Notes
This 119-nucleotide RNA sequence from Thermacetogenium phaeum belongs to the Rfam family "Molybdenum/Tungsten riboswitch aptamer (Moco RNA motif)". Pairs were carried over by alignment from the consensus structure, which is taken from published work. It scores 62 bits against the family's covariance model.
[Rfam]
RNA sequence: GUUAAUUACGUUCCCCGAAUUCAUUUGCCUGUGGCUUUGGCUAUGGCGGGUGAGUCGGUAGGGUUCGUCCGGAAACGGGUAGGCCUCCCGUUGCGGAAAGGGUGAACAGGAUAAUGCUA
Numbered sequence: 001g002u003u004a005a006u007u008a009c010g011u012u013c014c015c016c017g018a019a020u021u022c023a024u025u026u027g028c029c030u031g032u033g034g035c036u037u038u039g040g041c042u043a044u045g046g047c048g049g050g051u052g053a054g055u056c057g058g059u060a061g062g063g064u065u066c067g068u069c070c071g072g073a074a075a076c077g078g079g080u081a082g083g084c085c086u087c088c089c090g091u092u093g094c095g096g097a098a099a100g101g102g103u104g105a106a107c108a109g110g111a112u113a114a115u116g117c118u119a
Base pairs, nucleotide, nucleotide: 003113004112006110011105012104014102015101016100019055020054021053022052023051024050025049026048027047028046029045033042034041035040061086062085063084064083065082067080068079069078070077071076087096088095